[Rfam]
RNA sequence: CGGGGAUCCGGCGGACUCCCCGGCAGUUUCAAGACGUUCUCUUUGCGUCCAAGUUCCGC
Numbered sequence: 001c002g003g004g005g006a007u008c009c010g011g012c013g014g015a016c017u018c019c020c021c022g023g024c025a026g027u028u029u030c031a032a033g034a035c036g037u038u039c040u041c042u043u044u045g046c047g048u049c050c051a052a053g054u055u056c057c058g059c
Stems, first nucleotide, its partner, number of pairs: 001022006011059005033049005